Background: Clostridiales-1 RNA: a 165-nucleotide RNA from Oscillospiraceae bacterium Marseille-Q3528. Rfam classes the family as a small RNA. A search with the family's covariance model found it, with a score of 114 bits. The family's consensus secondary structure is taken from published work.
RNA sequence: CUAUGAAAGUCCUGAACGGCAGCCAUGAAUGAGUCAUGCUUACAUGAACGAAUUCAUGGAUAUCGGGCAGGCUAAACUGUAUGAGUAAGCAGGGCAAUCGCCCGGAUUACGAAUGCAGUUGCAGUUACGGGAGUGCCAUAGGCACGGAGUAACUGACUUUCAUAG
Numbered sequence: 001c002u003a004u005g006a007a008a009g010u011c012c013u014g015a016a017c018g019g020c021a022g023c024c025a026u027g028a029a030u031g032a033g034u035c036a037u038g039c040u041u042a043c044a045u046g047a048a049c050g051a052a053u054u055c056a057u058g059g060a061u062a063u064c065g066g067g068c069a070g071g072c073u074a075a076a077c078u079g080u081a082u083g084a085g086u087a088a089g090c091a092g093g094g095c096a097a098u099c100g101c102c103c104g105g106a107u108u109a110c111g112a113a114u115g116c117a118g119u120u121g122c123a124g125u126u127a128c129g130g131g132a133g134u135g136c137c138a139u140a141g142g143c144a145c146g147g148a149g150u151a152a153c154u155g156a157c158u159u160u161c162a163u164a165g
Stems, first nucleotide, its partner, number of pairs: 001165007011071004018064002021061001023059008033049001034047005075120008085110004092103004122155007133145004
Dot-bracket structure: (((((((...((((...((.(.((((((((..((((((....))))).)..)))))))).).))...))))...((((((((..((((...((((....))))...))))..)))))))).(((((((....((((.....))))...)))))))...)))))))